[Rfam]
Rfam assigns this 109-nucleotide RNA from Papilio machaon to the family "mir-277 microRNA precursor family".
NCBI's taxonomy places the organism under Eukaryota, Allotriocarida, Glossata, Papilioninae, Papilio.
A search with the family's covariance model found it, with a score of 70 bits.
Its family is annotated with RISC complex and miRNA-mediated post-transcriptional gene silencing in the Gene Ontology.
RNA sequence: UUCGUCCCGGAGUUCGUAUCAGGAGUGCGUUUGCAAAGAAUACGACCAAUUUGCGUUAUUGCAAAAUUGAUACUGUAAAUGCACUAUCUGGUACGACACCCCGGGGCGU
Numbered sequence: 001u002u003c004g005u006c007c008c009g010g011a012g013u014u015c016g017u018a019u020c021a022g023g024a025g026u027g028c029g030u031u032u033g034c035a036a037a038g039a040a041u042a043c044g045a046c047c048a049a050u051u052u053g054c055g056u057u058a059u060u061g062c063a064a065a066a067u068u069g070a071u072a073c074u075g076u077a078a079a080u081g082c083a084c085u086a087u088c089u090g091g092u093a094c095g096a097c098a099c100c101c102c103g104g105g106g107c108g109u
Stems, first nucleotide, its partner, number of pairs: 008103003015095009025084001027082009